The record is a 213-nucleotide RNA from Musa balbisiana, which matches "Plant small nucleolar RNA U3" in Rfam. The match comes from Rfam's covariance-model search (143 bits). The organism belongs to Musa, within Eukaryota. Rfam links the family to the GO terms nucleolus and RNA processing. About the family: Small nucleolar RNAs (snoRNAs) are involved in the processing and modification of rRNA in the nucleolus. There are two main classes of snoRNAs: the box C/D class, and the box H/ACA class. For this family Rfam cites "The uRNA database" (Zwieb, Nucleic Acids Res, 1997).
RNA sequence: ACAGCUUACUUGAACAGGAUCUGUUCUAUAGGUUCGUACAACUGUCUUAGAACUCUAACGAGACAGGCACGCAAGUCUGGUUGAUGAUACGGGACCUCAGGAUCGGAGCGUGAUUAACGGUGAGGAUCUCUCGAGAUCUCUCUCACAGUAGGGGAUCGUUCUUAGCUGGUGGUUGCCCAUCGGCUGGGACGAUCCUGGGUUGUCUGACAGACC
Numbered sequence: 001a002c003a004g005c006u007u008a009c010u011u012g013a014a015c016a017g018g019a020u021c022u023g024u025u026c027u028a029u030a031g032g033u034u035c036g037u038a039c040a041a042c043u044g045u046c047u048u049a050g051a052a053c054u055c056u057a058a059c060g061a062g063a064c065a066g067g068c069a070c071g072c073a074a075g076u077c078u079g080g081u082u083g084a085u086g087a088u089a090c091g092g093g094a095c096c097u098c099a100g101g102a103u104c105g106g107a108g109c110g111u112g113a114u115u116a117a118c119g120g121u122g123a124g125g126a127u128c129u130c131u132c133g134a135g136a137u138c139u140c141u142c143u144c145a146c147a148g149u150a151g152g153g154g155a156u157c158g159u160u161c162u163u164a165g166c167u168g169g170u171g172g173u174u175g176c177c178c179a180u181c182g183g184c185u186g187g188g189a190c191g192a193u194c195c196u197g198g199g200u201u202g203u204c205u206g207a208c209a210g211a212c213c
Stems, first nucleotide, its partner, number of pairs: 001037002003034001005031002012026006042066004047061001048058001050056001075212005094200003098197008107160004117149002120146005125138005162187010